[Rfam]
RNA: MAT2A 3'UTR stem loop B
RNA sequence: ACAGGCACUUGGCCACCCUAGUGAUAUCACACAGAGAAGUUACAGGGUAGUACCUGAGAGUCUGU
Numbered sequence: 001a002c003a004g005g006c007a008c009u010u011g012g013c014c015a016c017c018c019u020a021g022u023g024a025u026a027u028c029a030c031a032c033a034g035a036g037a038a039g040u041u042a043c044a045g046g047g048u049a050g051u052a053c054c055u056g057a058g059a060g061u062c063u064g065u
Stems, first nucleotide, its partner, number of pairs: 001065006008058002012054001015048005021043005027031001